[Rfam]
bantam microRNA precursor family: an 82-nucleotide RNA from Candidula unifasciata. On this family, see Weaver et al., Genome Biol 2007: "Computational and transcriptional evidence for microRNAs in the honey bee genome". The family is grouped with related families in Rfam's "mir-81 clan". A search with the family's covariance model found it, with a score of 78 bits.

RNA sequence: CUCCUGCCACAAAACUGGUUUUCACAUUGGUUUGACAGAAAUAAUCGAAAUCUGAGAUCAUUGUGAAAACUGAUUUUGUAUU
Numbered sequence: 001c002u003c004c005u006g007c008c009a010c011a012a013a014a015c016u017g018g019u020u021u022u023c024a025c026a027u028u029g030g031u032u033u034g035a036c037a038g039a040a041a042u043a044a045u046c047g048a049a050a051u052c053u054g055a056g057a058u059c060a061u062u063g064u065g066a067a068a069a070c071u072g073a074u075u076u077u078g079u080a081u082u
Base pairs, nucleotide, nucleotide: 009079010078011077012076013075014074016072017071018070019069020068021067022066023065024064025063028060029059030058031057032056033055